[Rfam]
RNA sequence: GUAAGAGGAACUUCUGCUAAGGGCGUGCACGUCCUGUGCACAACGCGGAAGUCACCGCAUCCUGCGGA
Number, nucleotide and partner (000 for none) at each position: 001g000002u000003a000004a000005g000006a000007g000008g000009a000010a000011c051012u050013u049014c048015u047016g046017c045018u000019a000020a000021g000022g000023g000024c000025g000026u040027g039028c038029a037030c036031g000032u000033c000034c000035u000036g030037u029038g028039c027040a026041c000042a000043a000044c000045g017046c016047g015048g014049a013050a012051g011052u000053c000054a000055c067056c066057g065058c064059a000060u000061c000062c000063u000064g058065c057066g056067g055068a000
A member of the RNA family "Bacillaceae-1 RNA" from Sporolactobacillus inulinus, 68 nucleotides long. The family has 95 seed sequences and 5,721 matches in Rfam 15.1.